[Rfam]
RNA sequence: GCAGAAGCAGAAGGGGCCCACAGCAGAAGCGUUCACGUUGUGACCCCUGUCAGAUAAUACCUGGUAAUACCUGGGAAUUCUGCU
Numbered sequence: 001g002c003a004g005a006a007g008c009a010g011a012a013g014g015g016g017c018c019c020a021c022a023g024c025a026g027a028a029g030c031g032u033u034c035a036c037g038u039u040g041u042g043a044c045c046c047c048u049g050u051c052a053g054a055u056a057a058u059a060c061c062u063g064g065u066a067a068u069a070c071c072u073g074g075g076a077a078u079u080c081u082g083c084u
Stems, first nucleotide, its partner, number of pairs: 013047004018042001022084007029041003051073003055069002
Shown here is an 84-nucleotide RNA from Alligator mississippiensis, a member of the family "Mammalian CPEB3 ribozyme". Rfam links the family to the GO term RNA nuclease activity. The organism belongs to Alligator, within Eukaryota.